[Rfam]
RNA sequence: UGAUGACGGCUUUCUCCGGAAUCUCUGCACAUCCUUGAUGACUUUUGAACCCUUUUCUGGCUGAUGACUGCAGUUUAUUCAGC
Numbered sequence: 001u002g003a004u005g006a007c008g009g010c011u012u013u014c015u016c017c018g019g020a021a022u023c024u025c026u027g028c029a030c031a032u033c034c035u036u037g038a039u040g041a042c043u044u045u046u047g048a049a050c051c052c053u054u055u056u057c058u059g060g061c062u063g064a065u066g067a068c069u070g071c072a073g074u075u076u077a078u079u080c081a082g083c
Stems, first nucleotide, its partner, number of pairs: 002083001004081003
The record is an 83-nucleotide RNA sequence, which matches "Small nucleolar RNA MBII-202" in Rfam. Rfam classes the family as a C/D-box small nucleolar RNA. Rfam links the family to the GO terms nucleolus and RNA processing. The sequence is in the family's curated seed alignment.